Rfam assigns this 205-nucleotide RNA from Paenibacillus cellulosilyticus to the family "c-di-AMP riboswitch aptamer (ydaO/yuaA leader)". The pairing is the family consensus, mapped onto this sequence.

RNA sequence: UCCAGUAGUACGCUUAAUCUCCUAAUGGAGAACGGGGGAACCAUAUGCGGAAAUGCUGCACAGUUCAAUGUGCCGCACGGAAGCAUAAACCGAUGGGGUGAAUUUGGAAGCAUUGCAUAGCGGUCGAUCCGCUGCAGUGUGACGAUAGGGCAACUCUCUUGCCCGAACCCGACAGCUAACCUCGUAAGCGAAAUAGAGAGAUCAA
Numbered sequence: 001u002c003c004a005g006u007a008g009u010a011c012g013c014u015u016a017a018u019c020u021c022c023u024a025a026u027g028g029a030g031a032a033c034g035g036g037g038g039a040a041c042c043a044u045a046u047g048c049g050g051a052a053a054u055g056c057u058g059c060a061c062a063g064u065u066c067a068a069u070g071u072g073c074c075g076c077a078c079g080g081a082a083g084c085a086u087a088a089a090c091c092g093a094u095g096g097g098g099u100g101a102a103u104u105u106g107g108a109a110g111c112a113u114u115g116c117a118u119a120g121c122g123g124u125c126g127a128u129c130c131g132c133u134g135c136a137g138u139g140u141g142a143c144g145a146u147a148g149g150g151c152a153a154c155u156c157u158c159u160u161g162c163c164c165g166a167a168c169c170c171g172a173c174a175g176c177u178a179a180c181c182u183c184g185u186a187a188g189c190g191a192a193a194u195a196g197a198g199a200g201a202u203c204a205a
Base pairs, nucleotide, nucleotide: 011190012189013188014187018031019030020029032185033184034183035182036181037180042095043094096170097169098168104145105144106143148164149163150162151161